Overview: A member of the RNA family "mir-29 microRNA precursor family" from Drosophila willistoni, 90 nucleotides long. The base pairs follow the family's consensus structure, which was predicted with PFOLD. Gene Ontology terms of the family: gene silencing by miRNA and RISC complex. The source organism's lineage runs through Eukaryota, Opisthokonta, Diptera, Drosophilini and Sophophora. For this family Rfam cites "microRNAs: tiny regulators with great potential" (Ambros, Cell, 2001). This family represents the microRNA (miRNA) precursors mir-29.
RNA sequence: AAAGAACUGAGAUCGAUUGGUGCAUAGAUAAUAUGCGAAUUCUAUCAUUUGAUUUCAUUCAAUUCUAGCACCAUUCGAAAUCAGUGCUUU
Number, nucleotide and partner (000 for none) at each position: 001a090002a089003a088004g087005a085006a000007c084008u083009g082010a081011g000012a000013u078014c077015g076016a000017u000018u073019g072020g071021u070022g069023c000024a000025u067026a066027g065028a064029u000030a000031a000032u000033a000034u000035g000036c000037g000038a000039a000040u000041u000042c000043u000044a000045u000046c000047a000048u000049u000050u000051g000052a000053u000054u000055u000056c000057a000058u000059u000060c000061a000062a000063u000064u028065c027066u026067a025068g000069c022070a021071c020072c019073a018074u000075u000076c015077g014078a013079a000080a000081u010082c009083a008084g007085u005086g000087c004088u003089u002090u001